[Rfam]
RNA sequence: AAGAUAGCAUCACGUUACGUGAGUUAUACUUUUCGGUUUUAUAUUUUGAAUGGAUGGAUUGUCAGCUGCUUGGAUCUUUUUAGACCGAGACAGAAAG
Numbered sequence: 001a002a003g004a005u006a007g008c009a010u011c012a013c014g015u016u017a018c019g020u021g022a023g024u025u026a027u028a029c030u031u032u033u034c035g036g037u038u039u040u041a042u043a044u045u046u047u048g049a050a051u052g053g054a055u056g057g058a059u060u061g062u063c064a065g066c067u068g069c070u071u072g073g074a075u076c077u078u079u080u081u082a083g084a085c086c087g088a089g090a091c092a093g094a095a096a097g
Stems, first nucleotide, its partner, number of pairs: 001031003004027005010022002066093003069089005075084003
Dot-bracket structure: ((((((((.((.........))))))).)))..................................((((((((.(((....)))))))).)))....